RNA sequence: CUGGGGUGCAUUGUAGUUGCAUUGCAUGUGUGUUCAUUGCUGCAAUGUAACUGCAGUGCAGCCCAG
Number, nucleotide and partner (000 for none) at each position: 001c066002u065003g064004g063005g000006g062007u060008g059009c058010a057011u056012u055013g054014u053015a052016g051017u000018u000019g048020c000021a046022u045023u044024g043025c042026a041027u000028g000029u000030g000031u000032g000033u000034u000035c000036a000037u000038u000039g000040c000041u026042g025043c024044a023045a022046u021047g000048u019049a000050a000051c016052u015053g014054c013055a012056g011057u010058g009059c008060a007061g000062c006063c004064c003065a002066g001

A member of the RNA family "mir-33 microRNA precursor family" from Branchiostoma belcheri, 66 nucleotides long. Rfam 15.1 lists 1,467 matches to the family in 815 species. Gene Ontology terms of the family: RISC complex and gene silencing by miRNA. The source organism's lineage runs through Eukaryota, Opisthokonta, Leptocardii, Branchiostomatidae and Branchiostoma. On this family, see Li et al., BMC Genomics 2009: "Direct sequencing and expression analysis of a large number of miRNAs in Aedes aegypti and a multi-species survey of novel mosquito miRNAs". Pairs were carried over by alignment from the consensus structure, which was predicted with PFOLD. It is one of the family's seed sequences.